The record is a 73-nucleotide RNA sequence from Phocoena sinus, which matches "mir-665 microRNA precursor family" in Rfam.
A reference for the family is Mineno et al. (2006), "The expression profile of microRNAs in mouse embryos", Nucleic Acids Res.
The family's consensus secondary structure was predicted with RNAalifold.
Its family is annotated with RISC complex and miRNA-mediated post-transcriptional gene silencing in the Gene Ontology.
RNA sequence: GCUCCUCGAGGGGCCUUAUCCUCUGCCCAGGACUUUCUCAUGACCAGGAGGCUGAGGCCCCUCACAGGUCGCU
Numbered sequence: 001g002c003u004c005c006u007c008g009a010g011g012g013g014c015c016u017u018a019u020c021c022u023c024u025g026c027c028c029a030g031g032a033c034u035u036u037c038u039c040a041u042g043a044c045c046a047g048g049a050g051g052c053u054g055a056g057g058c059c060c061c062u063c064a065c066a067g068g069u070c071g072c073u
Stems, first nucleotide, its partner, number of pairs: 001072002004068003008063010020051003023047002028042002031039002